RNA sequence: CCCUGCAUUCGAAAGUGAUGUGGGCUGCCUGUGCCCUGGUCAUUGAUUGUGCAGGGAGAGGAAGUGCUGAAAGCCUUUCUCUGUGUUUGGAGGGCCCAUCCUGUCCCUUCCAAACCCUGGAGCUUUCCCACA
Numbered sequence: 001c002c003c004u005g006c007a008u009u010c011g012a013a014a015g016u017g018a019u020g021u022g023g024g025c026u027g028c029c030u031g032u033g034c035c036c037u038g039g040u041c042a043u044u045g046a047u048u049g050u051g052c053a054g055g056g057a058g059a060g061g062a063a064g065u066g067c068u069g070a071a072a073g074c075c076u077u078u079c080u081c082u083g084u085g086u087u088u089g090g091a092g093g094g095c096c097c098a099u100c101c102u103g104u105c106c107c108u109u110c111c112a113a114a115c116c117c118u119g120g121a122g123c124u125u126u127c128c129c130a131c132a
Base pairs, nucleotide, nucleotide: 001056002055003054004053005052006051007050008049014044015043016042017041018040019039020037022036023035024034025033066129069127070126071125072124073123074122085115086114087113088112089111090109091108092107093106094105
Annotation:
Rfam assigns this 132-nucleotide RNA sequence from Equus caballus to the family "Small nucleolar RNA SNORA71". The members of this family belong to the H/ACA class of snoRNAs which bind a number of proteins (including dyskerin, Gar1p and Nop10p) to form snoRNP complexes. Pairs were carried over by alignment from the consensus structure, which was predicted with PFOLD.